Rfam assigns this 73-nucleotide RNA sequence from Sciurus carolinensis to the family "mir-3960 microRNA precursor family". Gene Ontology terms of the family: RISC complex and miRNA-mediated post-transcriptional gene silencing. The base pairs follow the family's consensus structure, which was predicted with RNAalifold.
RNA sequence: GCCCCGGCUCCCCGCGCCCCCGAUCGGGGCCGCCGCCAGUAGUGGCGGCGGCGGCGGAGGCGGGGGCAGCGGC
Numbered sequence: 001g002c003c004c005c006g007g008c009u010c011c012c013c014g015c016g017c018c019c020c021c022g023a024u025c026g027g028g029g030c031c032g033c034c035g036c037c038a039g040u041a042g043u044g045g046c047g048g049c050g051g052c053g054g055c056g057g058a059g060g061c062g063g064g065g066g067c068a069g070c071g072g073c
Base pairs, nucleotide, nucleotide: 001073002072003071005069007067008066010065011064012063013062014061015060016055017054018053029052030051031050032049033048034047037044038043